[Rfam]
The record is an 84-nucleotide RNA sequence from Ammoniphilus oxalaticus, which matches "c-di-GMP-I riboswitch aptamer" in Rfam. The match comes from Rfam's covariance-model search (66 bits). The organism belongs to Ammoniphilus, within Bacteria.
RNA sequence: AUCAGAAAAGGGCAAAUCAUUUGAAAGAAUGGCGCGCAAAGUCACAGGUCUAAAGCGAUUGGCUAUGAUGGCUGGACUACCUGG
Numbered sequence: 001a002u003c004a005g006a007a008a009a010g011g012g013c014a015a016a017u018c019a020u021u022u023g024a025a026a027g028a029a030u031g032g033c034g035c036g037c038a039a040a041g042u043c044a045c046a047g048g049u050c051u052a053a054a055g056c057g058a059u060u061g062g063c064u065a066u067g068a069u070g071g072c073u074g075g076a077c078u079a080c081c082u083g084g
Stems, first nucleotide, its partner, number of pairs: 012037002017032006040078004045074003048069003055063002